[Rfam]
Description
DUF3800-V RNA: a 96-nucleotide RNA sequence from Cladocopium goreaui.

RNA sequence: CUAUAGAGCGAUAAGACCGCUACGGGCGUCUUUGGUGUUCCCUUCCAUCGUGUAGGCAAAGCCAAGGAAUUCCUUCCCGUGGGGCACGCUCUAUUU
Dot-bracket structure: ..((((.((.............((((.(.(((((((....(((.(......).)))....)))))))......).))))........)).))))..
Numbered sequence: 001c002u003a004u005a006g007a008g009c010g011a012u013a014a015g016a017c018c019g020c021u022a023c024g025g026g027c028g029u030c031u032u033u034g035g036u037g038u039u040c041c042c043u044u045c046c047a048u049c050g051u052g053u054a055g056g057c058a059a060a061g062c063c064a065a066g067g068a069a070u071u072c073c074u075u076c077c078c079g080u081g082g083g084g085c086a087c088g089c090u091c092u093a094u095u096u
Stems, first nucleotide, its partner, number of pairs: 003094004008089002023079004028074001030067007041056003045052001

By type it is a small RNA. A search with the family's covariance model found it, with a score of 62 bits.